[Rfam]
RNA sequence: GGCCUCCCUCUGUGGGGUGAUCGAUUGUGGGGCUCUGCAAUCAAUCGCCCAGUAGAGGGAGGCC
Numbered sequence: 001g002g003c004c005u006c007c008c009u010c011u012g013u014g015g016g017g018u019g020a021u022c023g024a025u026u027g028u029g030g031g032g033c034u035c036u037g038c039a040a041u042c043a044a045u046c047g048c049c050c051a052g053u054a055g056a057g058g059g060a061g062g063c064c
Stems, first nucleotide, its partner, number of pairs: 001064013015050007023042008
A member of the RNA family "mir-9242 microRNA precursor family" from Myotis lucifugus, 64 nucleotides long.
Gene Ontology terms of the family: miRNA-mediated post-transcriptional gene silencing and RISC complex.